A member of the RNA family "pan motif" from Cohnella sp. AR92, 125 nucleotides long.
A search with the family's covariance model found it, with a score of 37 bits.
The base pairs follow the family's consensus structure, which is taken from published work.
RNA sequence: GAGGCCGUAUCGCAUUCGUCGAAUGGCACUCAGCUUGGGAUUCCGGGUUUCAUCUUACAAUUGAAUACGCCAUGGAGGUGAACGCGUUGGGUUUUGCUCUGAUCCGAGAGGACCGAGACAAAAAA
Numbered sequence: 001g002a003g004g005c006c007g008u009a010u011c012g013c014a015u016u017c018g019u020c021g022a023a024u025g026g027c028a029c030u031c032a033g034c035u036u037g038g039g040a041u042u043c044c045g046g047g048u049u050u051c052a053u054c055u056u057a058c059a060a061u062u063g064a065a066u067a068c069g070c071c072a073u074g075g076a077g078g079u080g081a082a083c084g085c086g087u088u089g090g091g092u093u094u095u096g097c098u099c100u101g102a103u104c105c106g107a108g109a110g111g112a113c114c115g116a117g118a119c120a121a122a123a124a125a
Stems, first nucleotide, its partner, number of pairs: 001031003004027005010022002094121003097117003101113001103112003